[Rfam]
RNA sequence: UAUAUAAAUUUGCUGAAUCCUCAAUUUUGAGGUACGGAGGAACCAUGAACAGGGGGUUAAUCCAUAUAUUUGGUAGGGUUGUCCUAUUACCCGAACCCGGCAGCUAACUUCGGAAGCACAUAUAGGAGGACUA
Numbered sequence: 001u002a003u004a005u006a007a008a009u010u011u012g013c014u015g016a017a018u019c020c021u022c023a024a025u026u027u028u029g030a031g032g033u034a035c036g037g038a039g040g041a042a043c044c045a046u047g048a049a050c051a052g053g054g055g056g057u058u059a060a061u062c063c064a065u066a067u068a069u070u071u072g073g074u075a076g077g078g079u080u081g082u083c084c085u086a087u088u089a090c091c092c093g094a095a096c097c098c099g100g101c102a103g104c105u106a107a108c109u110u111c112g113g114a115a116g117c118a119c120a121u122a123u124a125g126g127a128g129g130a131c132u133a
Stems, first nucleotide, its partner, number of pairs: 011118004019032004035112005044053001054098003062073003076092004

The record is a 133-nucleotide sequence from Ruminiclostridium hungatei, which matches "c-di-AMP riboswitch aptamer (ydaO/yuaA leader)" in Rfam. The match comes from Rfam's covariance-model search (95 bits).